[Rfam]
RNA sequence: UGAUCAAUCAGGCUGCUGGCUAUAUUCCAGGACUUAACUGAUCCCGGGUAUAACCAAAACCUGAUUCUAUG
Number, nucleotide and partner (000 for none) at each position: 001u000002g000003a000004u000005c000006a000007a065008u064009c063010a000011g061012g060013c000014u058015g000016c000017u056018g055019g054020c000021u052022a051023u050024a049025u000026u000027c000028c040029a039030g038031g000032a000033c000034u000035u000036a000037a000038c030039u029040g028041a000042u000043c000044c000045c000046g000047g000048g000049u024050a023051u022052a021053a000054c019055c018056a017057a000058a014059a000060c012061c011062u000063g009064a008065u007066u000067c000068u000069a000070u000071g000
The family of this 71-nucleotide RNA from Rattus norvegicus is "mir-344 microRNA precursor family". A search with the family's covariance model found it, with a score of 69 bits. Its family is annotated with miRNA-mediated post-transcriptional gene silencing and RISC complex in the Gene Ontology.